[Rfam]
Overview:
This 83-nucleotide RNA sequence belongs to the Rfam family "freshwater-2 RNA". Rfam's curators put it in the seed alignment. The family's consensus secondary structure is taken from published work.

RNA sequence: AGAACUCAUGAGAGGACUUAUGGGGCUCCCACCCCGUAGUAGCUAGAACCUACAUUGGACUUCUUUUAAGGAGAAAACAAAUG
Numbered sequence: 001a002g003a004a005c006u007c008a009u010g011a012g013a014g015g016a017c018u019u020a021u022g023g024g025g026c027u028c029c030c031a032c033c034c035c036g037u038a039g040u041a042g043c044u045a046g047a048a049c050c051u052a053c054a055u056u057g058g059a060c061u062u063c064u065u066u067u068a069a070g071g072a073g074a075a076a077a078c079a080a081a082u083g
Base pairs, nucleotide, nucleotide: 001018002017005014006013019038020037021036022035023034024033025032039053040052041051042050